[Rfam]
RNA sequence: GGAUGAGGUAGAGGUCGCGGAUAUAAAGAGUACGCGCGUGGAGAUGCCUAAGAGCCAUCUAUGAUACGUGCCGAAAGGAAUAUCCGCCGAAAUCCGGGCUGCUGCUCUUAGUUUAGCAGCGCGGAUUGGGGCCGUCAGCCGAAAGGCGCGGAACUGUCACCGUGUACUUGCCUGCCAGGAAACUGCGGGAAUUGCACCGUGUUGCGCUAUCUUAACA
Numbered sequence: 001g002g003a004u005g006a007g008g009u010a011g012a013g014g015u016c017g018c019g020g021a022u023a024u025a026a027a028g029a030g031u032a033c034g035c036g037c038g039u040g041g042a043g044a045u046g047c048c049u050a051a052g053a054g055c056c057a058u059c060u061a062u063g064a065u066a067c068g069u070g071c072c073g074a075a076a077g078g079a080a081u082a083u084c085c086g087c088c089g090a091a092a093u094c095c096g097g098g099c100u101g102c103u104g105c106u107c108u109u110a111g112u113u114u115a116g117c118a119g120c121g122c123g124g125a126u127u128g129g130g131g132c133c134g135u136c137a138g139c140c141g142a143a144a145g146g147c148g149c150g151g152a153a154c155u156g157u158c159a160c161c162g163u164g165u166a167c168u169u170g171c172c173u174g175c176c177a178g179g180a181a182a183c184u185g186c187g188g189g190a191a192u193u194g195c196a197c198c199g200u201g202u203u204g205c206g207c208u209a210u211c212u213u214a215a216c217a
Base pairs, nucleotide, nucleotide: 006212007211008210009209010208011207017087018086019085020084021083022082023081024080034071035070036069037068038067039066040065091127092126093125094124095123096122098120099119100118101117102116103115104114128155129154132151133150134149136148139145158201159200160199162197163196164195165194166193
Dot-bracket structure: .....((((((.....((((((((.........(((((((........................)))))))........))))))))...((((((.(((((((.........))))))).))))))((..(((.(..(.....)..))))..))..(((.(((((..........................))))).))).....)))))).....
Shown here is a 217-nucleotide RNA from Paenibacillus sp. FSL R5-0912, a member of the family "Lysine riboswitch aptamer".
Lineage of the source: Bacteria > Bacillota > Caryophanales > Paenibacillaceae > Paenibacillus.
A search with the family's covariance model found it, with a score of 88 bits.